Description
Molybdenum/Tungsten riboswitch aptamer (Moco RNA motif): a 118-nucleotide RNA sequence from Caloramator fervidus. The organism belongs to Caloramator, within Bacteria.
[Rfam]
RNA sequence: AACUAAGAAAUUCUCCGAGCCUAUAAACCUAAGGCUUGGGCUAUGGUUUAUAGGCCGUUAGGGUAGAGUUGGAAACGGCUCUGCCUCCCGUUUGGAAAGGAGAAUAUAGGGAUUAUAU
Numbered sequence: 001a002a003c004u005a006a007g008a009a010a011u012u013c014u015c016c017g018a019g020c021c022u023a024u025a026a027a028c029c030u031a032a033g034g035c036u037u038g039g040g041c042u043a044u045g046g047u048u049u050a051u052a053g054g055c056c057g058u059u060a061g062g063g064u065a066g067a068g069u070u071g072g073a074a075a076c077g078g079c080u081c082u083g084c085c086u087c088c089c090g091u092u093u094g095g096a097a098a099g100g101a102g103a104a105u106a107u108a109g110g111g112a113u114u115a116u117a118u
Stems, first nucleotide, its partner, number of pairs: 004111001011104006019055011033042003061086011087095002